[Rfam]
raiA-hairpin RNA: a 48-nucleotide RNA sequence from Streptomyces candidus. It is annotated as a small RNA.
RNA sequence: CGCCAAGUCCGAGACUUCGGGACUGACCGGAGUCUGGUGCAAGAGGGA
Numbered sequence: 001c002g003c004c005a006a007g008u009c010c011g012a013g014a015c016u017u018c019g020g021g022a023c024u025g026a027c028c029g030g031a032g033u034c035u036g037g038u039g040c041a042a043g044a045g046g047g048a
Base pairs, nucleotide, nucleotide: 013034014033015032016031017030018029019028020027
Dot-bracket structure: ............((((((((......))))))))..............